[Rfam]
RNA sequence: GUGCUUUAGGGAUGAACAAGUCCCUAAAAUUUAAUUUUUUAUCCAUCCCAUUCACUUUGUCAGCAGUCUCUUUCCGGGUUGCUUGCUGAUCAUUUGAGGGUGGGAAAUUU
Numbered sequence: 001g002u003g004c005u006u007u008a009g010g011g012a013u014g015a016a017c018a019a020g021u022c023c024c025u026a027a028a029a030u031u032u033a034a035u036u037u038u039u040u041a042u043c044c045a046u047c048c049c050a051u052u053c054a055c056u057u058u059g060u061c062a063g064c065a066g067u068c069u070c071u072u073u074c075c076g077g078g079u080u081g082c083u084u085g086c087u088g089a090u091c092a093u094u095u096g097a098g099g100g101u102g103g104g105a106a107a108u109u110u
Stems, first nucleotide, its partner, number of pairs: 042104006059090008

Rfam assigns this 110-nucleotide RNA sequence from Citrus sinensis to the family "Small nucleolar RNA snoR99". A reference for the family is Marker et al. (2002), "Experimental RNomics: identification of 140 candidates for small non-messenger RNAs in the plant Arabidopsis thaliana", Curr Biol. NCBI's taxonomy places the organism under Eukaryota, Streptophytina, Magnoliopsida, Gunneridae, Citrus. It scores 90 bits against the family's covariance model. Gene Ontology terms of the family: RNA processing and nucleolus. The family has 9 seed sequences and 733 matches in Rfam 15.1.